[Rfam]
RNA: Purine riboswitch aptamer
RNA sequence: AGUAAUAUCAAUAUCGCCGUUCGUAUAUCCUCGAUAAUAUGGUUCGAAAGUUUCUACCGGAGCGCCGUAAAUGCUCUGACUAUGAAGGCAGAAGCUCGGAAU
Numbered sequence: 001a002g003u004a005a006u007a008u009c010a011a012u013a014u015c016g017c018c019g020u021u022c023g024u025a026u027a028u029c030c031u032c033g034a035u036a037a038u039a040u041g042g043u044u045c046g047a048a049a050g051u052u053u054c055u056a057c058c059g060g061a062g063c064g065c066c067g068u069a070a071a072u073g074c075u076c077u078g079a080c081u082a083u084g085a086a087g088g089c090a091g092a093a094g095c096u097c098g099g100a101a102u
Base pairs, nucleotide, nucleotide: 018088020086021085022084023083024082025081031047032046033045034044058078059077060076061075062074063073064072